[Rfam]
RNA: TPP riboswitch aptamer (THI element)
RNA sequence: GUGAAGACAAAGGGGUGCCGCACACCUAUGCGAGCUGAGAUCAUACCCUACGAACCUGAAACGGUUAAGACCGGCGAAGGGAUUGUCGGAUUGUAGUCC
Numbered sequence: 001g002u003g004a005a006g007a008c009a010a011a012g013g014g015g016u017g018c019c020g021c022a023c024a025c026c027u028a029u030g031c032g033a034g035c036u037g038a039g040a041u042c043a044u045a046c047c048c049u050a051c052g053a054a055c056c057u058g059a060a061a062c063g064g065u066u067a068a069g070a071c072c073g074g075c076g077a078a079g080g081g082a083u084u085g086u087c088g089g090a091u092u093g094u095a096g097u098c099c
Base pairs, nucleotide, nucleotide: 006087007086008085009084010083011049012048013047014046016043017035018034019032020031021030055080056079057078062073063072064071